RNA sequence: UAUAUACAGUAUUGUUUGAGUAUCCUGAAAACGGGCUUUUCAGAAUGGUAUUGUAUAAAUAGUUAAUUAGGAGUGCAUAGUGGCCCGUAUAGCAGGCAUUAACAUUCCUGAU
Numbered sequence: 001u002a003u004a005u006a007c008a009g010u011a012u013u014g015u016u017u018g019a020g021u022a023u024c025c026u027g028a029a030a031a032c033g034g035g036c037u038u039u040u041c042a043g044a045a046u047g048g049u050a051u052u053g054u055a056u057a058a059a060u061a062g063u064u065a066a067u068u069a070g071g072a073g074u075g076c077a078u079a080g081u082g083g084c085c086c087g088u089a090u091a092g093c094a095g096g097c098a099u100u101a102a103c104a105u106u107c108c109u110g111a112u
Base pairs, nucleotide, nucleotide: 004056005055006054007053008052009051010050011049012048013047024096025095026094032087033086034085035084040111041110042109
Shown here is a 112-nucleotide RNA sequence from Proteus myxofaciens, a member of the family "Alpha operon ribosome binding site". For this family Rfam cites "Translational repression of the Escherichia coli alpha operon mRNA: importance of an mRNA conformational switch and a ternary entrapment complex" (Schlax et al., J Biol Chem, 2001). About the family: The bacterial alpha operon ribosome binding site is surrounded by this complex pseudoknotted structure. Translation of the mRNA produces 4 ribosomal protein products, one of which (S4) acts as a translational repressor by binding to the nested pseudoknot region. The mechanism of repression is thought to involve a conformational switch in the pseudoknot region and ribosome entrapment. It is annotated as a cis-regulatory element.